RNA: TPP riboswitch aptamer (THI element)
Organism: Heyndrickxia coagulans
Nucleotides: 112
Stems, first nucleotide, its partner, number of pairs: 006100005011062004017033005040055005068093004074087004
Number, partner (000 for none) and nucleotide at each position: 001000u002000c003000a004000a005000a006100c007099u008098a009097c010096u011062a012061g013060g014059g015000g016000u017033g018032c019031c020030c021029g022000g023000a024000u025000u026000u027000g028000g029021c030020g031019g032018g033017c034000u035000g036000a037000g038000a039000g040055a041054a042053a043052a044051a045000c046000c047000g048000g049000c050000g051044u052043u053042u054041u055040u056000c057000a058000a059014c060013c061012c062011u063000u064000u065000g066000g067000a068093c069092c070091u071090g072000a073000u074087c075086c076085g077084g078000a079000u080000c081000a082000u083000a084077c085076c086075g087074g088000c089000g090071u091070a092069g093068g094000a095000a096010a097009g098008u099007a100006g101000g102000a103000a104000u105000u106000u107000g108000u109000a110000a111000a112000a